[Rfam]
RNA sequence: CAUGCACCAGAGGGGUCCCUCAGCCUGGUCUGCACCCUCUCACAAUCUGGGACCCCUCUGGGAAUGUCGGAGAGCCAGUUUUGGCCCGCUCCCGCAGGCCAGGCUGAGGGACCCCACUGAUGCACA
Numbered sequence: 001c002a003u004g005c006a007c008c009a010g011a012g013g014g015g016u017c018c019c020u021c022a023g024c025c026u027g028g029u030c031u032g033c034a035c036c037c038u039c040u041c042a043c044a045a046u047c048u049g050g051g052a053c054c055c056c057u058c059u060g061g062g063a064a065u066g067u068c069g070g071a072g073a074g075c076c077a078g079u080u081u082u083g084g085c086c087c088g089c090u091c092c093c094g095c096a097g098g099c100c101a102g103g104c105u106g107a108g109g110g111a112c113c114c115c116a117c118u119g120a121u122g123c124a125c126a
Stems, first nucleotide, its partner, number of pairs: 003124002006121001008119003012115014027100007